[Rfam]
RNA sequence: UGGCCAGAGCAGGACUUUUGCUGUUUGACCUGCGAAUCACCGACCGAAGGAGAAUAGGCCGUCAGGAAGGUGACUGGCUU
Numbered sequence: 001u002g003g004c005c006a007g008a009g010c011a012g013g014a015c016u017u018u019u020g021c022u023g024u025u026u027g028a029c030c031u032g033c034g035a036a037u038c039a040c041c042g043a044c045c046g047a048a049g050g051a052g053a054a055u056a057g058g059c060c061g062u063c064a065g066g067a068a069g070g071u072g073a074c075u076g077g078c079u080u
Base pairs, nucleotide, nucleotide: 002079003078004077005076006075009033010032011031012030038072039071040070041069044066045065
RNA: CyVA-1 RNA